[Rfam]
RNA sequence: AUACCUUCUCGGCCUUUUGGCUAUGAUCAAGUGUAGUAUCUGUUCUUAUCAGUGUGACAACUGAUAUGGAUCCUACGGGAUCCAAACUCUAGUCACAGAAAUUUUUAUACGGGAGAUAUAGAUCACUGAGCUUGCUCAUAUCAAUGUCGAAAUGUCGCCUCGUCCUUACACUACCGAUGAGAGUGGCAUGCCCUAC
Numbered sequence: 001a002u003a004c005c006u007u008c009u010c011g012g013c014c015u016u017u018u019g020g021c022u023a024u025g026a027u028c029a030a031g032u033g034u035a036g037u038a039u040c041u042g043u044u045c046u047u048a049u050c051a052g053u054g055u056g057a058c059a060a061c062u063g064a065u066a067u068g069g070a071u072c073c074u075a076c077g078g079g080a081u082c083c084a085a086a087c088u089c090u091a092g093u094c095a096c097a098g099a100a101a102u103u104u105u106u107a108u109a110c111g112g113g114a115g116a117u118a119u120a121g122a123u124c125a126c127u128g129a130g131c132u133u134g135c136u137c138a139u140a141u142c143a144a145u146g147u148c149g150a151a152a153u154g155u156c157g158c159c160u161c162g163u164c165c166u167u168a169c170a171c172u173a174c175c176g177a178u179g180a181g182a183g184u185g186g187c188a189u190g191c192c193c194u195a196c
Stems, first nucleotide, its partner, number of pairs: 007026002011022004047066006068083006115148005121142002127138004152189006159181006